A member of the RNA family "FMN riboswitch aptamer (RFN element)" from Thermoanaerobacter sp. X514, 115 nucleotides long. On this family, see Vitreschak et al., Nucleic Acids Res 2002: "Regulation of riboflavin biosynthesis and transport genes in bacteria by transcriptional and translational attenuation". The family's consensus secondary structure is taken from published work. NCBI's taxonomy places the organism under Bacteria, Bacillota, Clostridia, Thermoanaerobacterales, Thermoanaerobacter.
RNA sequence: UAAAACCUUCAGGGAUCGGUGAAAUUCCGUACCGGCGGUAUAGCCCGCGAGCCUUUUGGCAGACUCGGUGAAAUUCCGAGGCCGACAGUUAAAGUCUGGAUGGGAGAAGGAGAAA
Numbered sequence: 001u002a003a004a005a006c007c008u009u010c011a012g013g014g015a016u017c018g019g020u021g022a023a024a025u026u027c028c029g030u031a032c033c034g035g036c037g038g039u040a041u042a043g044c045c046c047g048c049g050a051g052c053c054u055u056u057u058g059g060c061a062g063a064c065u066c067g068g069u070g071a072a073a074u075u076c077c078g079a080g081g082c083c084g085a086c087a088g089u090u091a092a093a094g095u096c097u098g099g100a101u102g103g104g105a106g107a108a109g110g111a112g113a114a115a
Stems, first nucleotide, its partner, number of pairs: 006110005017029003031095002033084002035048004043082002051060002064080005086098003